The record is a 79-nucleotide RNA sequence from Hermetia illucens, which matches "drz-agam-1 ribozyme" in Rfam. The source organism's lineage runs through Eukaryota, Insecta, Dicondylia, Panorpida and Hermetia.

[Rfam]
RNA sequence: UACUACCAAACCCUUUCUCUGCCUACACGCGGUGACCGCUGGGGGCUUUUUCUUAACGAAAAGCUGCAGACGGAGAAGG
Numbered sequence: 001u002a003c004u005a006c007c008a009a010a011c012c013c014u015u016u017c018u019c020u021g022c023c024u025a026c027a028c029g030c031g032g033u034g035a036c037c038g039c040u041g042g043g044g045g046c047u048u049u050u051u052c053u054u055a056a057c058g059a060a061a062a063g064c065u066g067c068a069g070a071c072g073g074a075g076a077a078g079g
Stems, first nucleotide, its partner, number of pairs: 012079005018073002021033003044065007052058001
The base pairs follow the family's consensus structure, which is taken from published work.